[Rfam]
RNA: c-di-AMP riboswitch aptamer (ydaO/yuaA leader)
Organism: Paenibacillus nasutitermitis
RNA sequence: GCAUAUGACAAGCCGAAUUUCGAAAUGAAAACGGGGGAACCAUAAUGCUGUCCACAAGAAAUCGCCGUGUUUGUGCGAGAUCAUGAAGGACAGCCCGGGGUGAAUUUCUUCAGGCAGAUUGACUGCUUGUGAAUAGGGCUGCUGUUCAGGCCCGAAUCCGUCAGCUAACCUCGCAGGCUUCGUAGAACAGGACU
Number, nucleotide and partner (000 for none) at each position: 001g000002c000003a000004u000005a000006u000007g000008a000009c000010a000011a179012g178013c177014c176015g000016a000017a000018u030019u029020u028021c000022g000023a000024a000025a000026u000027g000028a020029a019030a018031a000032c173033g172034g171035g170036g169037g000038a000039a000040c000041c097042a000043u000044a000045a000046u000047g000048c000049u000050g000051u000052c000053c000054a000055c000056a000057a000058g000059a000060a000061a000062u000063c000064g000065c000066c000067g000068u000069g000070u000071u000072u000073g000074u000075g000076c000077g000078a000079g000080a000081u000082c000083a000084u000085g000086a000087a000088g000089g000090a000091c000092a000093g000094c000095c000096c000097g041098g159099g158100g157101u000102g000103a000104a000105u000106u133107u132108c131109u000110u000111c000112a000113g000114g000115c000116a000117g000118a000119u000120u000121g000122a000123c000124u000125g000126c000127u000128u000129g000130u000131g108132a107133a106134u000135a000136g153137g152138g151139c150140u000141g000142c000143u000144g000145u000146u000147c000148a000149g000150g139151c138152c137153c136154g000155a000156a000157u100158c099159c098160g000161u000162c000163a000164g000165c000166u000167a000168a000169c036170c035171u034172c033173g032174c000175a000176g014177g013178c012179u011180u000181c000182g000183u000184a000185g000186a000187a000188c000189a000190g000191g000192a000193c000194u000